[Rfam]
RNA sequence: GAAUUCAUUGCUGUUUACAGGUUCUUGAACAUAAUGACCUCGUGAUUACGGGGUUUUUUGUUAUCUGGGACUUUUAAAUGUGUCGUAGUCGUCAUAGGUUACGACAGGGUAAUGGGGCUAUUAAGCCCUUUUUUG
Numbered sequence: 001g002a003a004u005u006c007a008u009u010g011c012u013g014u015u016u017a018c019a020g021g022u023u024c025u026u027g028a029a030c031a032u033a034a035u036g037a038c039c040u041c042g043u044g045a046u047u048a049c050g051g052g053g054u055u056u057u058u059u060g061u062u063a064u065c066u067g068g069g070a071c072u073u074u075u076a077a078a079u080g081u082g083u084c085g086u087a088g089u090c091g092u093c094a095u096a097g098g099u100u101a102c103g104a105c106a107g108g109g110u111a112a113u114g115g116g117g118c119u120a121u122u123a124a125g126c127c128c129u130u131u132u133u134u135g
Stems, first nucleotide, its partner, number of pairs: 034057001036055007115128004
A member of the RNA family "Gammaprotebacteria rimP leader" from Shewanella salipaludis, 135 nucleotides long. Lineage of the source: Bacteria > Pseudomonadati > Gammaproteobacteria > Alteromonadales > Shewanella. Its family is annotated with regulation of gene expression in the Gene Ontology. The literature on the family includes a 2010 paper in Genome Biol by Naville and Gautheret, "Premature terminator analysis sheds light on a hidden world of bacterial transcriptional attenuation".